[Rfam]
RNA: mir-9256 microRNA precursor family
Nucleotides: 067
Stems, first nucleotide, its partner, number of pairs: 004064014019049010
Number, partner (000 for none) and nucleotide at each position: 001000u002000c003000c004064u005063a006062c007061a008060c009059u010058g011057a012056g013055u014054g015053g016052c017051c018000a019049g020048a021047u022046u023045a024044u025043u026042a027041u028040g029000a030000u031000u032000u033000c034000u035000g036000a037000a038000c039000a040028u041027a042026u043025a044024a045023u046022a047021a048020u049019c050000u051017g052016g053015c054014c055013a056012c057011u058010c059009a060008g061007u062006g063005u064004g065000u066000a067000u